[Rfam]
RNA sequence: GGGAGGUAUGAUCUCGUGCUCCGUGGGAGUUGUAUCCUGUGCUUCCUGGGAGGUGUGAUAUCAUGGUUCCU
Numbered sequence: 001g002g003g004a005g006g007u008a009u010g011a012u013c014u015c016g017u018g019c020u021c022c023g024u025g026g027g028a029g030u031u032g033u034a035u036c037c038u039g040u041g042c043u044u045c046c047u048g049g050g051a052g053g054u055g056u057g058a059u060a061u062c063a064u065g066g067u068u069c070c071u
Stems, first nucleotide, its partner, number of pairs: 001070004014058005020052001022050001024048006031041004